glmS glucosamine-6-phosphate activated ribozyme aptamer: a 176-nucleotide RNA from a Clostridiales bacterium.

RNA sequence: GAGCGUGAGAAAGCGCCAGGGCUGACGGUACAAGCACCGCGAGAGCGGUGGUCAGCCGACGAGGUGAGAGUCUAUCGAAGUAUUCGGCGGAUGGCUCUCCGGCUCGACCGGAGUCGUGACGUCACCGGCAAAUCCCGCGGGCGAUCGCGGGGACAACACGGUGGCGGUCCGGUAUC
Numbered sequence: 001g002a003g004c005g006u007g008a009g010a011a012a013g014c015g016c017c018a019g020g021g022c023u024g025a026c027g028g029u030a031c032a033a034g035c036a037c038c039g040c041g042a043g044a045g046c047g048g049u050g051g052u053c054a055g056c057c058g059a060c061g062a063g064g065u066g067a068g069a070g071u072c073u074a075u076c077g078a079a080g081u082a083u084u085c086g087g088c089g090g091a092u093g094g095c096u097c098u099c100c101g102g103c104u105c106g107a108c109c110g111g112a113g114u115c116g117u118g119a120c121g122u123c124a125c126c127g128g129c130a131a132a133u134c135c136c137g138c139g140g141g142c143g144a145u146c147g148c149g150g151g152g153a154c155a156a157c158a159c160g161g162u163g164g165c166g167g168u169c170c171g172g173u174a175u176c
Stems, first nucleotide, its partner, number of pairs: 020057007029048001066099005075087004100116006120166007134151007

The family's consensus secondary structure is taken from published work.